Rfam assigns this 103-nucleotide RNA from Vigna angularis to the family "Small nucleolar RNA R30/Z108".
RNA sequence: AGUUUUCACGAUGAGGAUAGCAAAGCUCCCUCUUCCAAAAUUUCAAUUUGAGGAAGAACGCUGGCUGAAUCGAACCAUAAACCUUAUGGCCACCACUGAGUGA
Number, nucleotide and partner (000 for none) at each position: 001a000002g000003u000004u000005u000006u103007c102008a101009c100010g000011a000012u000013g000014a000015g000016g000017a000018u000019a000020g000021c000022a000023a000024a000025g000026c000027u000028c000029c000030c000031u000032c000033u000034u000035c000036c000037a000038a000039a000040a000041u000042u000043u000044c000045a000046a000047u000048u000049u000050g000051a000052g000053g000054a000055a000056g000057a000058a000059c000060g000061c000062u000063g000064g000065c000066u000067g000068a000069a000070u000071c000072g000073a000074a000075c000076c000077a000078u000079a000080a000081a000082c000083c000084u000085u000086a000087u000088g000089g000090c000091c000092a000093c000094c000095a000096c000097u000098g000099a000100g009101u008102g007103a006
Overview: Pairs were carried over by alignment from the consensus structure, which was predicted with PFOLD. Rfam describes the family as follows. snoR30 is a C/D box small nucleolar RNA which acts as a methylation guide for 18S ribosomal RNA in plants. Rfam classes the family as a C/D-box small nucleolar RNA. Lineage of the source: Eukaryota > Viridiplantae > eudicotyledons > Vigna > Vigna angularis. The family is grouped with related families in Rfam's "SNORD100 clan".